Rfam assigns this 77-nucleotide RNA sequence from Siminovitchia fortis to the family "Glycine riboswitch aptamer".
The family is grouped with related families in Rfam's "Glycine riboswitch clan".
RNA sequence: AGAGCAGCUUCUGGAGAGACCGCAAUGCGCGGCGCCGAAGGAUUCACAAUCUCAGGCAAAAGGACAGAAGAGUAACU
Number, nucleotide and partner (000 for none) at each position: 001a000002g000003a000004g000005c000006a000007g000008c070009u069010u068011c067012u066013g065014g000015a000016g000017a000018g000019a000020c032021c031022g030023c029024a000025a000026u000027g000028c000029g023030c022031g021032g020033c000034g057035c056036c055037g053038a052039a000040g000041g051042a050043u049044u000045c000046a000047c000048a000049a043050u042051c041052u038053c037054a000055g036056g035057c034058a000059a000060a000061a000062g000063g000064a000065c013066a012067g011068a010069a009070g008071a000072g000073u000074a000075a000076c000077u000